The record is a 128-nucleotide RNA from Candidatus Nanopelagicus abundans, which matches "FMN riboswitch aptamer (RFN element)" in Rfam.

Nucleotides: 128
Base pairs, nucleotide, nucleotide: 003126004125005124006123007122008121009120010119016028017027018026030108031107032097033096034048035047036046037045043095044094052072053071077093078092079091080090081089099111100110101109
Number, partner (000 for none) and nucleotide at each position: 001000c002000u003126a004125c005124a006123u007122u008121u009120u010119c011000g012000g013000g014000g015000u016028c017027g018026g019000u020000g021000u022000a023000a024000u025000u026018c027017c028016g029000a030108a031107c032097c033096g034048g035047c036046a037045g038000u039000u040000a041000a042000a043095g044094u045037c046036u047035g048034c049000g050000a051000c052072c053071c054000g055000c056000u057000g058000g059000c060000a061000u062000c063000c064000a065000g066000u067000u068000a069000g070000c071053g072052g073000u074000g075000g076000a077093u078092u079091u080090g081089g082000u083000g084000a085000a086000a087000u088000u089081c090080c091079a092078g093077a094044a095043c096033c097032g098000a099111c100110g101109g102000u103000u104000a105000a106000a107031g108030u109101c110100c111099g112000g113000a114000u115000g116000a117000g118000a119010g120009a121008a122007g123006a124005u125004g126003u127000a128000u